[Rfam]
The family of this 71-nucleotide RNA sequence from Crocuta crocuta is "Small nucleolar RNA SNORD56". Rfam 15.1 lists 796 matches to the family in 432 species. Lineage of the source: Eukaryota > Bilateria > Vertebrata > Carnivora > Crocuta. Pairs were carried over by alignment from the consensus structure, which was predicted with PFOLD. The literature on the family includes a 2002 paper in Mol Cell Biol by Galardi et al., "Purified box C/D snoRNPs are able to reproduce site-specific 2'-O-methylation of target RNA in vitro".
RNA sequence: CUGCAAUGAUGGCACUAUUUUUCAUCAACAGGAAUUCACCUCCUGCAUGUUGAUACUUUGGGUCUGAGUGA
Numbered sequence: 001c002u003g004c005a006a007u008g009a010u011g012g013c014a015c016u017a018u019u020u021u022u023c024a025u026c027a028a029c030a031g032g033a034a035u036u037c038a039c040c041u042c043c044u045g046c047a048u049g050u051u052g053a054u055a056c057u058u059u060g061g062g063u064c065u066g067a068g069u070g071a
Base pairs, nucleotide, nucleotide: 002070003069004068008026009025010024011023